Annotation
A member of the RNA family "Streptomyces-metK RNA" from Streptomyces dioscori, 115 nucleotides long. A search with the family's covariance model found it, with a score of 120 bits. Pairs were carried over by alignment from the consensus structure, which is taken from published work.
RNA sequence: GCGAGACAGUAGCCCCGCGACGGAGCGCGACCGAUAAACUGUUCUCGGACGACGCCGGGCGCAGCUCCCGGCCGUCCGCCAAUGAUCAGCCAGCAGCCGCUGCAACCACAGGGAG
Number, nucleotide and partner (000 for none) at each position: 001g000002c000003g000004a000005g000006a000007c000008a000009g000010u000011a000012g000013c000014c000015c000016c000017g000018c000019g000020a000021c000022g000023g000024a000025g000026c000027g000028c000029g000030a000031c000032c000033g000034a000035u000036a000037a000038a000039c000040u000041g000042u000043u000044c000045u000046c000047g077048g076049a075050c074051g073052a000053c000054g000055c071056c070057g069058g068059g067060c000061g000062c000063a000064g000065c000066u000067c059068c058069c057070g056071g055072c000073c051074g050075u049076c048077c047078g000079c000080c000081a000082a000083u000084g000085a000086u000087c000088a000089g000090c000091c102092a101093g100094c099095a000096g000097c000098c000099g094100c093101u092102g091103c000104a000105a000106c000107c000108a000109c000110a000111g000112g000113g000114a000115g000